[Rfam]
Record summary
Shown here is a 433-nucleotide RNA sequence from Streptomyces sp. NP160, a member of the family "Bacterial RNase P class A". The family's RNA type in Rfam is ribozyme. The organism belongs to Streptomyces, within Bacteria. Its family is annotated with ribonuclease P activity, dimeric ribonuclease P complex and tRNA processing in the Gene Ontology. The match comes from Rfam's covariance-model search (196 bits).

RNA sequence: CGAGCCAGCCGGGCGGCCGCGUCGACGGGCCUCGCGAGGGGUCCGCCGCCGAGGAACGUCCGGGCUCCGCAGGGCAGGGUGGUGGGCAACACCCACCCGGGGUGACCCGCGGGAAAGUGCCACAGAGAACAGACCGCCACGCCGCCUCCGGUCCGCCGGAGGGGGCGGGGCAAGGGUGAAACGGUGGUGCAAGAGACCACCAGCGCCCCCGGUGACGGGGGUGGCUCGGCAAACCCCACCCGGAGCAAGGCCAGACAGGGAGCGUCCGAGGGCUGCCCGCCCGAGCUCCCGGGUAGGCCGCGACUGCGACCGGCCCCACGCGGGACGGGAGCGACGAGGACGGCGGCAACGCCGUCCCGAGAUGGAUGGCCGCCCCCUGCGACCGGCUCGCCGGACGCAGGGACAGGACCCGGCGUACAGGCUGGCUCGCCCG
Numbered sequence: 001c002g003a004g005c006c007a008g009c010c011g012g013g014c015g016g017c018c019g020c021g022u023c024g025a026c027g028g029g030c031c032u033c034g035c036g037a038g039g040g041g042u043c044c045g046c047c048g049c050c051g052a053g054g055a056a057c058g059u060c061c062g063g064g065c066u067c068c069g070c071a072g073g074g075c076a077g078g079g080u081g082g083u084g085g086g087c088a089a090c091a092c093c094c095a096c097c098c099g100g101g102g103u104g105a106c107c108c109g110c111g112g113g114a115a116a117g118u119g120c121c122a123c124a125g126a127g128a129a130c131a132g133a134c135c136g137c138c139a140c141g142c143c144g145c146c147u148c149c150g151g152u153c154c155g156c157c158g159g160a161g162g163g164g165g166c167g168g169g170g171c172a173a174g175g176g177u178g179a180a181a182c183g184g185u186g187g188u189g190c191a192a193g194a195g196a197c198c199a200c201c202a203g204c205g206c207c208c209c210c211g212g213u214g215a216c217g218g219g220g221g222u223g224g225c226u227c228g229g230c231a232a233a234c235c236c237c238a239c240c241c242g243g244a245g246c247a248a249g250g251c252c253a254g255a256c257a258g259g260g261a262g263c264g265u266c267c268g269a270g271g272g273c274u275g276c277c278c279g280c281c282c283g284a285g286c287u288c289c290c291g292g293g294u295a296g297g298c299c300g301c302g303a304c305u306g307c308g309a310c311c312g313g314c315c316c317c318a319c320g321c322g323g324g325a326c327g328g329g330a331g332c333g334a335c336g337a338g339g340a341c342g343g344c345g346g347c348a349a350c351g352c353c354g355u356c357c358c359g360a361g362a363u364g365g366a367u368g369g370c371c372g373c374c375c376c377c378u379g380c381g382a383c384c385g386g387c388u389c390g391c392c393g394g395a396c397g398c399a400g401g402g403a404c405a406g407g408a409c410c411c412g413g414c415g416u417a418c419a420g421g422c423u424g425g426c427u428c429g430c431c432c433g
Stems, first nucleotide, its partner, number of pairs: 001429010011418001012374007020051002023048002026045007056416003060413005065245004072278004077241005082096005097111001098109004112236002117234002119230003134175002136171003140167004183201006203225001204223008249299004258290006270282004